[Rfam]
RNA sequence: AUACUACUCAAAGGGGAGUAGCUUUUAGGUUUAAUACCUAAAACAAAGUCGUCAGUUCAUGGCAUAUGCCAUCGGCUUUGUUGGCAUAUUAGUGCUU
Number, nucleotide and partner (000 for none) at each position: 001a000002u000003a000004c000005u000006a000007c000008u000009c000010a000011a000012a000013g000014g000015g000016g000017a000018g000019u000020a000021g000022c000023u000024u000025u000026u040027a039028g038029g000030u000031u000032u000033a000034a000035u000036a000037c000038c028039u027040a026041a000042a082043a081044c080045a079046a078047a077048g076049u075050c074051g073052u000053c000054a000055g000056u000057u000058c000059a072060u071061g070062g069063c068064a000065u000066a000067u000068g063069c062070c061071a060072u059073c051074g050075g049076c048077u047078u046079u045080g044081u043082u042083g000084g000085c000086a000087u000088a000089u000090u000091a000092g000093u000094g000095c000096u000097u000
This 97-nucleotide sequence from Niallia circulans belongs to the Rfam family "Manganese Mn2+ riboswitch aptamer (yybP-ykoY)". NCBI's taxonomy places the organism under Bacteria, Bacilli, Caryophanales, Bacillaceae, Niallia. For this family Rfam cites "Novel small RNA-encoding genes in the intergenic regions of Escherichia coli" (Argaman et al., Curr Biol, 2001). This RNA was originally discovered in E. coli during a large scale screen and was named SraF. The family was later found to exist upstream of related families of protein genes in many bacteria, including the the yybP and ykoK genes in B. subtilis. The pairing is the family consensus, mapped onto this sequence. It scores 54 bits against the family's covariance model.